[Rfam]
RNA sequence: AAAAAGGCGAUGAAUAGGAAGAGUAAAUCUAAUUCGAUUACCAGAGAGAAGAGUCCGUUGGCUGGAAGACUUUUUAAAUUAGAGGGAUUGAAAACUACCUAGGAGCUACUUUCUGAAGUCAUCUGCAUUAGUAGAUUUUAGUAAGAAUAGUCGUUAGCUGCGUUAAAGUGUAAAGUGAGUUUUCAUGACAUAUGAAAACUAAAUUAGGUGGAACCGCGGGAAUAAUACUCUCGUCCUUAUG
Numbered sequence: 001a002a003a004a005a006g007g008c009g010a011u012g013a014a015u016a017g018g019a020a021g022a023g024u025a026a027a028u029c030u031a032a033u034u035c036g037a038u039u040a041c042c043a044g045a046g047a048g049a050a051g052a053g054u055c056c057g058u059u060g061g062c063u064g065g066a067a068g069a070c071u072u073u074u075u076a077a078a079u080u081a082g083a084g085g086g087a088u089u090g091a092a093a094a095c096u097a098c099c100u101a102g103g104a105g106c107u108a109c110u111u112u113c114u115g116a117a118g119u120c121a122u123c124u125g126c127a128u129u130a131g132u133a134g135a136u137u138u139u140a141g142u143a144a145g146a147a148u149a150g151u152c153g154u155u156a157g158c159u160g161c162g163u164u165a166a167a168g169u170g171u172a173a174a175g176u177g178a179g180u181u182u183u184c185a186u187g188a189c190a191u192a193u194g195a196a197a198a199c200u201a202a203a204u205u206a207g208g209u210g211g212a213a214c215c216g217c218g219g220g221a222a223u224a225a226u227a228c229u230c231u232c233g234u235c236c237u238u239a240u241g
Stems, first nucleotide, its partner, number of pairs: 007106002015101004026089005039076002050073006109150002111147004152162003178200009206237003216234005
Shown here is a 241-nucleotide sequence from Clostridioides difficile, a member of the family "T-box leader".
The organism belongs to Clostridioides, within Bacteria.
A reference for the family is Grundy et al. (1994), "Interaction between the acceptor end of tRNA and the T box stimulates antitermination in the Bacillus subtilis tyrS gene: a new role for the discriminator base", J Bacteriol.
Rfam's curators write: Uncharged tRNA acts as the effector for transcription antitermination of genes in the T-box leader family.